The record is a 74-nucleotide RNA sequence from archaeon SCG-AAA382B04, which matches "tRNA" in Rfam. The match comes from Rfam's covariance-model search (63 bits).
RNA sequence: GGGCCUGUAGUCUAGGUGGUUAUGACGUCGCCUUGACAUGGCGGAGAUCACCGGUUCGAAUCCGGUCGGGCCCA
Numbered sequence: 001g002g003g004c005c006u007g008u009a010g011u012c013u014a015g016g017u018g019g020u021u022a023u024g025a026c027g028u029c030g031c032c033u034u035g036a037c038a039u040g041g042c043g044g045a046g047a048u049c050a051c052c053g054g055u056u057c058g059a060a061u062c063c064g065g066u067c068g069g070g071c072c073c074a
Stems, first nucleotide, its partner, number of pairs: 001073007010026003028044005050066005